A member of the RNA family "mir-181 microRNA precursor family" from Apteryx australis, 83 nucleotides long. Rfam 15.1 lists 3,490 matches to the family in 650 species. A search with the family's covariance model found it, with a score of 83 bits.

[Rfam]
RNA sequence: AGGUCUCGGUGAACAUUCAACGCUGUCGGUGAGUUUUGUCGCUGAGGUUAAACCAUCGACCGUUGAGUGGACCCCGGGGCCCU
Numbered sequence: 001a002g003g004u005c006u007c008g009g010u011g012a013a014c015a016u017u018c019a020a021c022g023c024u025g026u027c028g029g030u031g032a033g034u035u036u037u038g039u040c041g042c043u044g045a046g047g048u049u050a051a052a053c054c055a056u057c058g059a060c061c062g063u064u065g066a067g068u069g070g071a072c073c074c075c076g077g078g079g080c081c082c083u
Base pairs, nucleotide, nucleotide: 001083002082003081004079005078006077007076008075014069015068016067017066018065019064020063021062022061025060026059027058028057029056030055031054033053034052035051036050